RNA sequence: GUAGUAGCUUUUGUGUGUCGGUGUUUUCGCUUGUAGCCCGCAAGGGUUAGAAUCUGCCGCCUAAGAGAGCUCUCCUGCCUUAUUUGUAGCUGGCAUUUUGGGCUACGCAACAUAAGUAGCGGUUAUUUGGGU
Numbered sequence: 001g002u003a004g005u006a007g008c009u010u011u012u013g014u015g016u017g018u019c020g021g022u023g024u025u026u027u028c029g030c031u032u033g034u035a036g037c038c039c040g041c042a043a044g045g046g047u048u049a050g051a052a053u054c055u056g057c058c059g060c061c062u063a064a065g066a067g068a069g070c071u072c073u074c075c076u077g078c079c080u081u082a083u084u085u086g087u088a089g090c091u092g093g094c095a096u097u098u099u100g101g102g103c104u105a106c107g108c109a110a111c112a113u114a115a116g117u118a119g120c121g122g123u124u125a126u127u128u129g130g131g132u
Stems, first nucleotide, its partner, number of pairs: 003073002007070005019059005026052003036047004086106006

This 132-nucleotide RNA from Helicobacter canis belongs to the Rfam family "purD RNA motif". The organism belongs to Helicobacter canis, within Bacteria. The literature on the family includes a 2007 paper in Nucleic Acids Res by Weinberg et al., "Identification of 22 candidate structured RNAs in bacteria using the CMfinder comparative genomics pipeline". Rfam links the family to the GO term regulation of gene expression. Rfam classes the family as a cis-regulatory element.